Background:
Rfam assigns this 102-nucleotide sequence from Rhodococcus rhodnii to the family "mraW RNA". The family has 45 seed sequences and 851 matches in Rfam 15.1. Pairs were carried over by alignment from the consensus structure, which is taken from published work.
RNA sequence: UCUGACGAGUGUCUCGCGGCCUCUGCCCGACGGCACCCUGGCGCACUUCCCCAGCGCCAGGUGGCCGCUCGGACAGGGACCACGAAACAUUCGCUGCCACAA
Numbered sequence: 001u002c003u004g005a006c007g008a009g010u011g012u013c014u015c016g017c018g019g020c021c022u023c024u025g026c027c028c029g030a031c032g033g034c035a036c037c038c039u040g041g042c043g044c045a046c047u048u049c050c051c052c053a054g055c056g057c058c059a060g061g062u063g064g065c066c067g068c069u070c071g072g073a074c075a076g077g078g079a080c081c082a083c084g085a086a087a088c089a090u091u092c093g094c095u096g097c098c099a100c101a102a
Stems, first nucleotide, its partner, number of pairs: 010089003014085003018081002021078005027072004031067004037061008

Notes:
The source organism's lineage runs through Bacteria, Mycobacteriales, Nocardiaceae, Rhodococcus and Rhodococcus rhodnii.